[Rfam]
RNA sequence: CCUCCUGUUGUCAGUAACAAGGAUUCAUCCUGUUGUGAAUGUAUGACCCAACAGGAAAUCACUGUUACUGGGGGUAAGGGU
Numbered sequence: 001c002c003u004c005c006u007g008u009u010g011u012c013a014g015u016a017a018c019a020a021g022g023a024u025u026c027a028u029c030c031u032g033u034u035g036u037g038a039a040u041g042u043a044u045g046a047c048c049c050a051a052c053a054g055g056a057a058a059u060c061a062c063u064g065u066u067a068c069u070g071g072g073g074g075u076a077a078g079g080g081u
Stems, first nucleotide, its partner, number of pairs: 011071009022060004029055007037048001